About this RNA:
The family of this 131-nucleotide RNA from Erinaceus europaeus is "Small nucleolar RNA SNORA44". Its Rfam clan is "SNORA44 clan". Rfam classes the family as an H/ACA-box small nucleolar RNA. For this family Rfam cites "RNomics: an experimental approach that identifies 201 candidates for novel, small, non-messenger RNAs in mouse" (Huttenhofer et al., EMBO J, 2001). The base pairs follow the family's consensus structure, which was predicted with PFOLD. From the family's description: ACA44 is a member of the H/ACA class of snoRNA that guide the sites of modification of uridines to pseudouridines. A search with the family's covariance model found it, with a score of 82 bits. The organism belongs to Erinaceus, within Eukaryota. Rfam links the family to the GO terms nucleolus and RNA processing. Rfam 15.1 lists 1,056 matches to the family in 599 species.
RNA sequence: UUGUUAGAAACUGAUAUUGGUGGCUGGUCGUAGCCAUGGGAUCUCCAGCUACCUGUGAGAGUAACCUGGAGAGACUCUGAGAGCACAGGGCAGCCUAAUCCCUGUCGCUACCACUCAACUUUGCUAUAUUU
Numbered sequence: 001u002u003g004u005u006a007g008a009a010a011c012u013g014a015u016a017u018u019g020g021u022g023g024c025u026g027g028u029c030g031u032a033g034c035c036a037u038g039g040g041a042u043c044u045c046c047a048g049c050u051a052c053c054u055g056u057g058a059g060a061g062u063a064a065c066c067u068g069g070a071g072a073g074a075c076u077c078u079g080a081g082a083g084c085a086c087a088g089g090g091c092a093g094c095c096u097a098a099u100c101c102c103u104g105u106c107g108c109u110a111c112c113a114c115u116c117a118a119c120u121u122u123g124c125u126a127u128a129u130u131u
Stems, first nucleotide, its partner, number of pairs: 011039002018033001020031003068124001070122004083111001086104004